The record is a 31-nucleotide sequence from Python bivittatus, which matches "Iron response element II" in Rfam. Pairs were carried over by alignment from the consensus structure, which is taken from published work. The literature on the family includes a 1989 paper in Proc Natl Acad Sci U S A by Koeller et al., "A cytosolic protein binds to structural elements within the iron regulatory region of the transferrin receptor mRNA". Gene Ontology term of the family: response to iron ion. IRE, TFRC, SLC40A1, SDHB, SLC11A2, CDC42BPA, ACO2, ALAS2_H.SAPIENS, CDC14A, EPAS1, ALAS2, qoxD, Hao1, NDUFS1, transferrin, Aconitate. The family has 30 seed sequences and 5,197 matches in Rfam 15.1. The match comes from Rfam's covariance-model search (31 bits).

[Rfam]
RNA sequence: GAUUUAUCAGCAGCAACGUCUGCUAUAAAUC
Numbered sequence: 001g002a003u004u005u006a007u008c009a010g011c012a013g014c015a016a017c018g019u020c021u022g023c024u025a026u027a028a029a030u031c
Stems, first nucleotide, its partner, number of pairs: 001031007009024005014018001